Rfam assigns this 88-nucleotide sequence from Diabrotica balteata to the family "mir-275 microRNA precursor family". It scores 57 bits against the family's covariance model. The literature on the family includes a 2007 paper in Nucleic Acids Res by Winter et al., "Anopheles gambiae miRNAs as actors of defence reaction against Plasmodium invasion". Taxonomically the source falls in Diabrotica (Eukaryota, Insecta, Chrysomelidae, Diabroticina).

RNA sequence: CCGAUAUUUUCUCCGAGCGCUACCUCGGUAUCUAGGCUGUAUCUUUUGCUAGUCAGGUACCUGAAGUAGCGCGCGGAGUGAAUAUGUA
Numbered sequence: 001c002c003g004a005u006a007u008u009u010u011c012u013c014c015g016a017g018c019g020c021u022a023c024c025u026c027g028g029u030a031u032c033u034a035g036g037c038u039g040u041a042u043c044u045u046u047u048g049c050u051a052g053u054c055a056g057g058u059a060c061c062u063g064a065a066g067u068a069g070c071g072c073g074c075g076g077a078g079u080g081a082a083u084a085u086g087u088a
Stems, first nucleotide, its partner, number of pairs: 009080001011078002014075001017072006030058003035054004